[Rfam]
RNA sequence: CGCUGAGUUCCGGACUCCUCCACCUCCGUGGGGGAGCCCGGAAGCCGGGGAACCAACUCACCUGGGGUGAAUCCCUCGCAAGGCGGAGGCACGCACCGUGGCCACCGCGGAGCGGGGGUAGGGCAAACGUUGUGCCCGAACCCGUCAGCUCACCCGGUAGGCGUA
Number, nucleotide and partner (000 for none) at each position: 001c163002g162003c161004u160005g000006a000007g000008u043009u042010c041011c040012g039013g038014a000015c000016u000017c000018c000019u000020c000021c000022a000023c000024c000025u000026c000027c000028g000029u000030g000031g000032g000033g000034g000035a000036g000037c000038c013039c012040g011041g010042a009043a008044g158045c157046c156047g155048g154049g153050g000051a000052a000053c000054c064055a063056a000057c000058u000059c000060a000061c000062c000063u055064g054065g143066g142067g141068u000069g000070a000071a000072u000073c118074c117075c116076u115077c114078g113079c112080a000081a000082g000083g000084c000085g000086g000087a000088g000089g000090c000091a000092c000093g000094c000095a000096c000097c000098g000099u000100g000101g000102c000103c000104a000105c000106c000107g000108c000109g000110g000111a000112g079113c078114g077115g076116g075117g074118g073119u000120a000121g137122g136123g135124c134125a000126a000127a000128c000129g000130u000131u000132g000133u000134g124135c123136c122137c121138g000139a000140a000141c067142c066143c065144g000145u000146c000147a000148g000149c000150u000151c000152a000153c049154c048155c047156g046157g045158u044159a000160g004161g003162c002163g001164u000165a000
This 165-nucleotide RNA sequence from Nocardioides sp. PD653 belongs to the Rfam family "c-di-AMP riboswitch aptamer (ydaO/yuaA leader)".
NCBI's taxonomy places the organism under Bacteria, Bacillati, Actinomycetota, Propionibacteriales, Nocardioides.
The match comes from Rfam's covariance-model search (61 bits).